[Rfam]
RNA: RNase MRP
Organism: Zingiber officinale
RNA sequence: UGCCCAUGAGAUGAAGUGAUAGGAUUCUAGGAUCUAGGAAAAUCCCCGGGUCACUACCGCAGUGAUGCGGCCGUGUAAUUACGGUCCAUUAAAUCGGAUUGUGUCCCAUUACAGGGAGGGCUGAGACACGUGUGGAGCCUUUCAAUCUGAUUGUGGAUUCAUGACCGUUCUGAUAGUAAUUUACUUGGCCUUAUAAAUGGGUUAACAGAACGGGGUUUAUAUUCUCAUGGGU
Numbered sequence: 001u002g003c004c005c006a007u008g009a010g011a012u013g014a015a016g017u018g019a020u021a022g023g024a025u026u027c028u029a030g031g032a033u034c035u036a037g038g039a040a041a042a043u044c045c046c047c048g049g050g051u052c053a054c055u056a057c058c059g060c061a062g063u064g065a066u067g068c069g070g071c072c073g074u075g076u077a078a079u080u081a082c083g084g085u086c087c088a089u090u091a092a093a094u095c096g097g098a099u100u101g102u103g104u105c106c107c108a109u110u111a112c113a114g115g116g117a118g119g120g121c122u123g124a125g126a127c128a129c130g131u132g133u134g135g136a137g138c139c140u141u142u143c144a145a146u147c148u149g150a151u152u153g154u155g156g157a158u159u160c161a162u163g164a165c166c167g168u169u170c171u172g173a174u175a176g177u178a179a180u181u182u183a184c185u186u187g188g189c190c191u192u193a194u195a196a197a198u199g200g201g202u203u204a205a206c207a208g209a210a211c212g213g214g215g216u217u218u219a220u221a222u223u224c225u226c227a228u229g230g231g232u
Stems, first nucleotide, its partner, number of pairs: 002232010014186006023034004040218003044215004058069004071084004086156003092152010112137001126133002188202004